[Rfam]
RNA: c-di-AMP riboswitch aptamer (ydaO/yuaA leader)
Organism: Promicromonospora soli
RNA sequence: GGUCCUGAGCAGCUACGUCGUGACAGGGGCGGGGGAACCAAGUAAGCGGGCACGUGAGUGUCCUCGGGGUGAAGCCUCUUGUGAGGCCGGGUGAAUCGCUCUCCCCAUCCGAACCCGACAGCUCACUUCGUAGGCGUCCGAGGAGAUCACU
Numbered sequence: 001g002g003u004c005c006u007g008a009g010c011a012g013c014u015a016c017g018u019c020g021u022g023a024c025a026g027g028g029g030c031g032g033g034g035g036a037a038c039c040a041a042g043u044a045a046g047c048g049g050g051c052a053c054g055u056g057a058g059u060g061u062c063c064u065c066g067g068g069g070u071g072a073a074g075c076c077u078c079u080u081g082u083g084a085g086g087c088c089g090g091g092u093g094a095a096u097c098g099c100u101c102u103c104c105c106c107a108u109c110c111g112a113a114c115c116c117g118a119c120a121g122c123u124c125a126c127u128u129c130g131u132a133g134g135c136g137u138c139c140g141a142g143g144a145g146a147u148c149a150c151u
Stems, first nucleotide, its partner, number of pairs: 004028003029131006039066001067116003075086004089110004